[Rfam]
RNA: 7SK RNA
RNA sequence: AUGUGAGAGCAAUUUGGCUGUGACAUCUGACACACCCCUAACCACAAGUGUUGAUUUGACCGAUCCGGCUAGUUUAGACAGGUGUCCUCUUUCUUCCUCGACAUUCCAUGUAUGUUCCUCCUGAAGCUGUGUGCGUGGUUGAUGAGGACAACUCCCCACAACAGAGAUUUUAUUGUUCAUUAGUCAAGGGUAUGUGGUAGCGGUGCUCUCCUGCUGGAAGCUCUAAGUAAGUUCAAAGUCCAUUUGUAGAAGAAUGUACGGUAGUCAAGCUUUCAAUACUGAAGGCACAUCCAAAUGAGAAGCCGCAUGCAGCAGUCUGCCAUUGGUU
Numbered sequence: 001a002u003g004u005g006a007g008a009g010c011a012a013u014u015u016g017g018c019u020g021u022g023a024c025a026u027c028u029g030a031c032a033c034a035c036c037c038c039u040a041a042c043c044a045c046a047a048g049u050g051u052u053g054a055u056u057u058g059a060c061c062g063a064u065c066c067g068g069c070u071a072g073u074u075u076a077g078a079c080a081g082g083u084g085u086c087c088u089c090u091u092u093c094u095u096c097c098u099c100g101a102c103a104u105u106c107c108a109u110g111u112a113u114g115u116u117c118c119u120c121c122u123g124a125a126g127c128u129g130u131g132u133g134c135g136u137g138g139u140u141g142a143u144g145a146g147g148a149c150a151a152c153u154c155c156c157c158a159c160a161a162c163a164g165a166g167a168u169u170u171u172a173u174u175g176u177u178c179a180u181u182a183g184u185c186a187a188g189g190g191u192a193u194g195u196g197g198u199a200g201c202g203g204u205g206c207u208c209u210c211c212u213g214c215u216g217g218a219a220g221c222u223c224u225a226a227g228u229a230a231g232u233u234c235a236a237a238g239u240c241c242a243u244u245u246g247u248a249g250a251a252g253a254a255u256g257u258a259c260g261g262u263a264g265u266c267a268a269g270c271u272u273u274c275a276a277u278a279c280u281g282a283a284g285g286c287a288c289a290u291c292c293a294a295a296u297g298a299g300a301a302g303c304c305g306c307a308u309g310c311a312g313c314a315g316u317c318u319g320c321c322a323u324u325g326g327u328u
Stems, first nucleotide, its partner, number of pairs: 001105001004100004009095001011092002016089002022086008031077001033072001035068002041064001043062001118166003121138003126134002139161003146157002200270002206264002209261002212258003221252002224249001227247005293328002297323001299321001302316002305313002